[Rfam]
RNA sequence: UCGUUCUCAUGUGACUGGCGCAUACAGAUAGGGCACUAUCGGGGAGCAUGAGGUCUUUAGCCGCCGCGCGCCUGGGCAUUACCU
Numbered sequence: 001u002c003g004u005u006c007u008c009a010u011g012u013g014a015c016u017g018g019c020g021c022a023u024a025c026a027g028a029u030a031g032g033g034c035a036c037u038a039u040c041g042g043g044g045a046g047c048a049u050g051a052g053g054u055c056u057u058u059a060g061c062c063g064c065c066g067c068g069c070g071c072c073u074g075g076g077c078a079u080u081a082c083c084u
Stems, first nucleotide, its partner, number of pairs: 003055001005053008015043002017072005028039004063077003
Dot-bracket structure: ..(.((((((((..(([[[[[......((((....))))..))..)))))))).).......(((..]]]]]..))).......